The family of this 80-nucleotide sequence from Medicago truncatula is "MIR5269 microRNA precursor family". Its family is annotated with RISC complex and miRNA-mediated post-transcriptional gene silencing in the Gene Ontology. The family has 2 seed sequences and 389 matches in Rfam 15.1. Pairs were carried over by alignment from the consensus structure, which was predicted with RNAalifold. It scores 74 bits against the family's covariance model.

RNA sequence: UUGGGUGACAUCAAUGUAGAACCUACACUUUGAAAACGGAACCCAUAUAAAGUGGUAUGACAUACGUUAAUUUCACCUAA
Numbered sequence: 001u002u003g004g005g006u007g008a009c010a011u012c013a014a015u016g017u018a019g020a021a022c023c024u025a026c027a028c029u030u031u032g033a034a035a036a037c038g039g040a041a042c043c044c045a046u047a048u049a050a051a052g053u054g055g056u057a058u059g060a061c062a063u064a065c066g067u068u069a070a071u072u073u074c075a076c077c078u079a080a
Stems, first nucleotide, its partner, number of pairs: 001080008010071002013068006024057002026054007